[Rfam]
RNA sequence: UAAAAACGCUUGGGGUGCCGAAAGGCUGAGAGAAAACUAUGUUUUUAACCCAUUGAACCUGAUAUGGUUAGCACCAUCGUAGGGAAGGCAUUGAUUUUUAGGA
Numbered sequence: 001u002a003a004a005a006a007c008g009c010u011u012g013g014g015g016u017g018c019c020g021a022a023a024g025g026c027u028g029a030g031a032g033a034a035a036a037c038u039a040u041g042u043u044u045u046u047a048a049c050c051c052a053u054u055g056a057a058c059c060u061g062a063u064a065u066g067g068u069u070a071g072c073a074c075c076a077u078c079g080u081a082g083g084g085a086a087g088g089c090a091u092u093g094a095u096u097u098u099u100a101g102g103a
Stems, first nucleotide, its partner, number of pairs: 006091001008089003011052004017026003033045005058083004064077004
Description
TPP riboswitch aptamer (THI element): a 103-nucleotide RNA sequence from Acetobacterium bakii. A search with the family's covariance model found it, with a score of 74 bits. Pairs were carried over by alignment from the consensus structure, which is taken from published work.